Rfam assigns this 304-nucleotide RNA from Trifolium medium to the family "Plant signal recognition particle RNA". It scores 237 bits against the family's covariance model. Pairs were carried over by alignment from the consensus structure, which is taken from published work. On this family, see Wild et al., Curr Opin Struct Biol 2002: "Towards the structure of the mammalian signal recognition particle". The family's RNA type in Rfam is non-coding RNA gene.

[Rfam]
RNA sequence: GCCGAGUUGGGUAGCUCCAGCUUGUAACCCAUGUGGGGGCAUCAAAGUGGUUGAACAUGGCUCAGGAUUUUACAGGUUGGGCUAGUGGUUGCACCUUGCUGGUCUGCCCACUCCAAGUUGAGAGUUGACCAAUGGGACCUGAGCGAAAGCUUGAGUCUCCUUGGUUCUAGACUGGAGGGCACUGCGUGAGGCUGGUUUCACAGAGCAGCGAAUACCUCUGGCUCUUUCCAGUGGAGGGAUAACAGACUGCAGUAGUUCUAGCUCACAUUGCCUGGCAAGCCUAGCCACUUGAACCACCACUUUU
Numbered sequence: 001g002c003c004g005a006g007u008u009g010g011g012u013a014g015c016u017c018c019a020g021c022u023u024g025u026a027a028c029c030c031a032u033g034u035g036g037g038g039g040c041a042u043c044a045a046a047g048u049g050g051u052u053g054a055a056c057a058u059g060g061c062u063c064a065g066g067a068u069u070u071u072a073c074a075g076g077u078u079g080g081g082c083u084a085g086u087g088g089u090u091g092c093a094c095c096u097u098g099c100u101g102g103u104c105u106g107c108c109c110a111c112u113c114c115a116a117g118u119u120g121a122g123a124g125u126u127g128a129c130c131a132a133u134g135g136g137a138c139c140u141g142a143g144c145g146a147a148a149g150c151u152u153g154a155g156u157c158u159c160c161u162u163g164g165u166u167c168u169a170g171a172c173u174g175g176a177g178g179g180c181a182c183u184g185c186g187u188g189a190g191g192c193u194g195g196u197u198u199c200a201c202a203g204a205g206c207a208g209c210g211a212a213u214a215c216c217u218c219u220g221g222c223u224c225u226u227u228c229c230a231g232u233g234g235a236g237g238g239a240u241a242a243c244a245g246a247c248u249g250c251a252g253u254a255g256u257u258c259u260a261g262c263u264c265a266c267a268u269u270g271c272c273u274g275g276c277a278a279g280c281c282u283a284g285c286c287a288c289u290u291g292a293a294c295c296a297c298c299a300c301u302u303u304u
Stems, first nucleotide, its partner, number of pairs: 001040003004023008028037003044303008053294001056291002060286001061284002065281002068279003073274005079264007087256001089255003100249007108238002111236005117229001120226006127166006134159005140153005173220006183212001185210003192203003